[Rfam]
RNA sequence: AAUUGAUAAAGGCAAAUCCAUCGAAAGAUGGUGACGCAAAGCCACGGGUCUAAGAUUGGGAACAAUUAUGAUCGCCGGGUUGCCACA
Numbered sequence: 001a002a003u004u005g006a007u008a009a010a011g012g013c014a015a016a017u018c019c020a021u022c023g024a025a026a027g028a029u030g031g032u033g034a035c036g037c038a039a040a041g042c043c044a045c046g047g048g049u050c051u052a053a054g055a056u057u058g059g060g061a062a063c064a065a066u067u068a069u070g071a072u073c074g075c076c077g078g079g080u081u082g083c084c085a086c087a
Stems, first nucleotide, its partner, number of pairs: 012037002018031005040081004045077003048072003055066004
The family of this 87-nucleotide RNA sequence from Paenibacillus cremeus is "c-di-GMP-I riboswitch aptamer". From the family's description: GEMM was predicted in a large-scale screen for bacterial structured RNA regulatory elements. Genes associated with GEMM are involved in a diverse array of functions, including chemotaxis regulation, signal transduction, secretion and chitin.